Shown here is a 158-nucleotide sequence from Listeria booriae, a member of the family "glmS glucosamine-6-phosphate activated ribozyme aptamer". Taxonomically the source falls in Listeria (Bacteria, Bacillati, Bacillota, Caryophanales). By type it is a riboswitch. About the family: This entry contains a glucosamine-6-phosphate activated ribozyme that is found in the mRNA for GlmS. GlmS is an enzyme that uses fructose-6-phosphate and glutamine to generate glucosamine-6-phosphate.
Nucleotides: 158
Stems, first nucleotide, its partner, number of pairs: 020038008047078005056067004079096006102148005108142001116133007
Number, partner (000 for none) and nucleotide at each position: 001000a002000a003000c004000u005000a006000a007000a008000u009000a010000g011000a012000a013000g014000c015000g016000c017000c018000a019000g020038a021037a022036c023035u024034a025033a026032g027031u028000a029000u030000u031027g032026c033025u034024u035023a036022g037021u038020u039000g040000a041000c042000g043000a044000g045000g046000a047078a048077g049076g050075g051074a052000u053000u054000a055000a056067u057066c058065g059064a060000a061000a062000a063000u064059u065058c066057g067056g068000c069000g070000g071000g072000a073000g074051u075050c076049c077048c078047u079096c080095g081094g082093u083092u084091g085000u086000a087000c088000a089000u090000g091084c092083a093082a094081u095080c096079g097000u098000a099000a100000u101000g102148c103147c104146u105145u106144u107000g108142c109000u110000a111000c112000a113000a114000a115000c116133c117132a118131u119130u120129a121128g122127g123000g124000u125000g126000a127122c128121c129120u130119a131118g132117u133116g134000a135000a136000c137000a138000g139000a140000g141000u142108g143000g144106a145105a146104a147103g148102g149000a150000a151000c152000a153000u154000g155000u156000u157000u158000u